The record is a 93-nucleotide sequence from Sousa chinensis, which matches "Small nucleolar RNA SNORD116" in Rfam.
Pairs were carried over by alignment from the consensus structure, which was predicted with PFOLD.
A reference for the family is Cavaille et al. (2000), "Identification of brain-specific and imprinted small nucleolar RNA genes exhibiting an unusual genomic organization", Proc Natl Acad Sci U S A.
Rfam classes the family as a C/D-box small nucleolar RNA.
The organism belongs to Sousa, within Eukaryota.

RNA sequence: GGAUCGACGAUGACUCCCAAAAAAUGUAUUCCUUAGAUAUUUGAAAAAAAUGAGUGAGAAAUCCCUACCGUCUCCUCAUCGGAACUGAGGUCC
Number, nucleotide and partner (000 for none) at each position: 001g093002g092003a091004u090005c089006g000007a000008c000009g000010a000011u000012g000013a000014c000015u000016c000017c000018c000019a000020a000021a000022a000023a000024a000025u000026g000027u056028a055029u054030u053031c052032c000033u048034u047035a000036g000037a000038u000039a000040u000041u000042u000043g000044a000045a000046a000047a034048a033049a000050a000051u000052g031053a030054g029055u028056g027057a000058g000059a000060a000061a000062u000063c000064c000065c000066u000067a000068c000069c000070g000071u000072c000073u000074c000075c000076u000077c000078a000079u000080c000081g000082g000083a000084a000085c000086u000087g000088a000089g005090g004091u003092c002093c001